Overview: A member of the RNA family "Archaeal RNase P" from Candidatus Nitrosocosmicus franklandianus, 288 nucleotides long. Rfam classes the family as a ribozyme. The match comes from Rfam's covariance-model search (182 bits). The family is grouped with related families in Rfam's "RNaseP clan". The literature on the family includes a 1998 paper in Annu Rev Biochem by Frank and Pace, "Ribonuclease P: unity and diversity in a tRNA processing ribozyme". The family's consensus secondary structure is taken from published work. Ribonuclease P (RNase P) is a ubiquitous endoribonuclease, found in archaea, bacteria and eukarya as well as chloroplasts and mitochondria. Its best characterised activity is the generation of mature 5'-ends of tRNAs by cleaving the 5'-leader elements of precursor-tRNAs. Cellular RNase Ps are ribonucleoproteins.
RNA sequence: GUGAGCUAGCGGGCAAGUUACUUCAUUAUUACGAAGAGGAAACUCCUCCCUCACAACGGGUACCUGAAUUAGCGAUAAUUAGAAGGAGACUUCUGGCAACGAAAUAGAAAAGUAUUCAGUAGAAAUCUGAAGCGAUGAUGACUAAUAAUCUGAGUGAUUUCUACUAGAAAUGAAACUGUCGUCCCAGGUAGAGAAAGGCCAAACGGAGUAAUAUUCCCGUGUUUAUACUCAGGUAGGCUGCUUAGCUGAAUCUUGCCUAAAACAAAAGGAGGGUUACUACUAGCACAC
Numbered sequence: 001g002u003g004a005g006c007u008a009g010c011g012g013g014c015a016a017g018u019u020a021c022u023u024c025a026u027u028a029u030u031a032c033g034a035a036g037a038g039g040a041a042a043c044u045c046c047u048c049c050c051u052c053a054c055a056a057c058g059g060g061u062a063c064c065u066g067a068a069u070u071a072g073c074g075a076u077a078a079u080u081a082g083a084a085g086g087a088g089a090c091u092u093c094u095g096g097c098a099a100c101g102a103a104a105u106a107g108a109a110a111a112g113u114a115u116u117c118a119g120u121a122g123a124a125a126u127c128u129g130a131a132g133c134g135a136u137g138a139u140g141a142c143u144a145a146u147a148a149u150c151u152g153a154g155u156g157a158u159u160u161c162u163a164c165u166a167g168a169a170a171u172g173a174a175a176c177u178g179u180c181g182u183c184c185c186a187g188g189u190a191g192a193g194a195a196a197g198g199c200c201a202a203a204c205g206g207a208g209u210a211a212u213a214u215u216c217c218c219g220u221g222u223u224u225a226u227a228c229u230c231a232g233g234u235a236g237g238c239u240g241c242u243u244a245g246c247u248g249a250a251u252c253u254u255g256c257c258u259a260a261a262a263c264a265a266a267a268g269g270a271g272g273g274u275u276a277c278u279a280c281u282a283g284c285a286c287a288c
Stems, first nucleotide, its partner, number of pairs: 001288003005284005011277001012257006021036004041275003045272005050193003055222001059218002062189005067080005081094005095184002100181003115169003118165008140150002197239004206230005